A member of the RNA family "RT-9 RNA", 103 nucleotides long. It is one of the family's seed sequences.
RNA sequence: GAUUGUUAAGAUCACGGUUUUAACAACAUGGUUUGAACAAAGUUCAAGAGAGUUUAAUUCUUUCAGCAGCAAUGAAUUGCAAACUGUAAACACAUAAACAAUG
Numbered sequence: 001g002a003u004u005g006u007u008a009a010g011a012u013c014a015c016g017g018u019u020u021u022a023a024c025a026a027c028a029u030g031g032u033u034u035g036a037a038c039a040a041a042g043u044u045c046a047a048g049a050g051a052g053u054u055u056a057a058u059u060c061u062u063u064c065a066g067c068a069g070c071a072a073u074g075a076a077u078u079g080c081a082a083a084c085u086g087u088a089a090a091c092a093c094a095u096a097a098a099c100a101a102u103g
Base pairs, nucleotide, nucleotide: 003026004025005024006023007022008021009020010019011018012017064086065085066084